RNA sequence: UACUAAGGGCACACGGUGGAUGCCUAGGCAGUCGAACCGAAGAAGGACGUGGCUACCUGCGAAAAGCCUCGGGGAGUUGGAAGCAAGCGGUGAUCCGGGGAUAUCCGAAUGGGGAAACCCAGCAGAGCGAACCUCUGCUACCCAUACCUGAACACAUAGGGUAUGAGGAGGGAACCCAGGGAACUGAAACAUCUAAGUACCUGGAGGAGAGGAAAGAAAACUCGAUUCCGUGAGUAGUGGCGAACGAAAGCGGAGGAGCCCAAACCGAGGUCUACGGGCCUUGGGGUUGUAGGACCAGCUCAUUAGACCCGAGUGUUUAGCCGAAGCGUACUGGAAAGGCGCACCAUAGAGGGUGAGAGUCCUGUAGGCGAAAGGCACGGAGGCGAGGCUGGCACCUGAGUAGCUCAGGCCACGCGAAAUCCUGAGUGAAUCUGCGGGGACCACCCCGCAAGGCUAAAUAUUCCGACUGACCGAUAGCGAACCAGUACCGUGAGGGAAAGGUGAAAAGCACCCCGUGAGGGGAGUGAAAGAGUCCCUGAAACCGUGUGCUUACAAG
Numbered sequence: 001u002a003c004u005a006a007g008g009g010c011a012c013a014c015g016g017u018g019g020a021u022g023c024c025u026a027g028g029c030a031g032u033c034g035a036a037c038c039g040a041a042g043a044a045g046g047a048c049g050u051g052g053c054u055a056c057c058u059g060c061g062a063a064a065a066g067c068c069u070c071g072g073g074g075a076g077u078u079g080g081a082a083g084c085a086a087g088c089g090g091u092g093a094u095c096c097g098g099g100g101a102u103a104u105c106c107g108a109a110u111g112g113g114g115a116a117a118c119c120c121a122g123c124a125g126a127g128c129g130a131a132c133c134u135c136u137g138c139u140a141c142c143c144a145u146a147c148c149u150g151a152a153c154a155c156a157u158a159g160g161g162u163a164u165g166a167g168g169a170g171g172g173a174a175c176c177c178a179g180g181g182a183a184c185u186g187a188a189a190c191a192u193c194u195a196a197g198u199a200c201c202u203g204g205a206g207g208a209g210a211g212g213a214a215a216g217a218a219a220a221c222u223c224g225a226u227u228c229c230g231u232g233a234g235u236a237g238u239g240g241c242g243a244a245c246g247a248a249a250g251c252g253g254a255g256g257a258g259c260c261c262a263a264a265c266c267g268a269g270g271u272c273u274a275c276g277g278g279c280c281u282u283g284g285g286g287u288u289g290u291a292g293g294a295c296c297a298g299c300u301c302a303u304u305a306g307a308c309c310c311g312a313g314u315g316u317u318u319a320g321c322c323g324a325a326g327c328g329u330a331c332u333g334g335a336a337a338g339g340c341g342c343a344c345c346a347u348a349g350a351g352g353g354u355g356a357g358a359g360u361c362c363u364g365u366a367g368g369c370g371a372a373a374g375g376c377a378c379g380g381a382g383g384c385g386a387g388g389c390u391g392g393c394a395c396c397u398g399a400g401u402a403g404c405u406c407a408g409g410c411c412a413c414g415c416g417a418a419a420u421c422c423u424g425a426g427u428g429a430a431u432c433u434g435c436g437g438g439g440a441c442c443a444c445c446c447c448g449c450a451a452g453g454c455u456a457a458a459u460a461u462u463c464c465g466a467c468u469g470a471c472c473g474a475u476a477g478c479g480a481a482c483c484a485g486u487a488c489c490g491u492g493a494g495g496g497a498a499a500g501g502u503g504a505a506a507a508g509c510a511c512c513c514c515g516u517g518a519g520g521g522g523a524g525u526g527a528a529a530g531a532g533u534c535c536c537u538g539a540a541a542c543c544g545u546g547u548g549c550u551u552a553c554a555a556g
Stems, first nucleotide, its partner, number of pairs: 007551010022536001023501002027472002029469006035462002037171002045106003048061003067100007076088003111120003121139007141168002143165007175206001176204005186193002216223002226458001227254005237245002257455004265284007291397003295392005308383002313378006320369003326342004331338001345349001351363003403427007434449005488495002511522004
RNA: Bacterial large subunit ribosomal RNA, nucleotides 9 to 564